A member of the RNA family "Betaproteobacteria toxic small RNA" from Massilia sp. Root335, 60 nucleotides long. The source organism's lineage runs through Bacteria, Pseudomonadati, Pseudomonadota, Oxalobacteraceae and Massilia. Overexpression in amino aid rich medium attenuates growth, suggesting role in repressing amino acid intake and metabolism. It scores 55 bits against the family's covariance model.

RNA sequence: CGUCUCCUCUAUCUUCCUCCAAGAAAAUAGAUUCAGCCCGCCCCGUGCGGGCUUUUUUUU
Numbered sequence: 001c002g003u004c005u006c007c008u009c010u011a012u013c014u015u016c017c018u019c020c021a022a023g024a025a026a027a028u029a030g031a032u033u034c035a036g037c038c039c040g041c042c043c044c045g046u047g048c049g050g051g052c053u054u055u056u057u058u059u060u
Base pairs, nucleotide, nucleotide: 008031009030010029011028012027013023014022035053036052037051038050039049040048041047